[Rfam]
RNA: c-di-GMP-II-GAG riboswitch aptamer
Nucleotides: 084
Stems, first nucleotide, its partner, number of pairs: 006080005013060003022054008038072002040068005
Number, partner (000 for none) and nucleotide at each position: 001000g002000c003000c004000a005000c006080c007079c008078u009077c010076g011000g012000a013060g014059g015058c016000g017000u018000c019000g020000a021000c022054c023053u024052u025051c026050a027049c028048c029047c030000c031000c032000u033000u034000a035000g036000c037000c038072g039071g040068u041067c042066a043065c044064c045000u046000g047029g048028g049027g050026u051025g052024a053023a054022g055000c056000g057000a058015g059014c060013c061000a062000a063000u064044g065043g066042u067041g068040a069000g070000a071039c072038c073000g074000c075000a076010c077009g078008a079007g080006g081000a082000g083000a084000c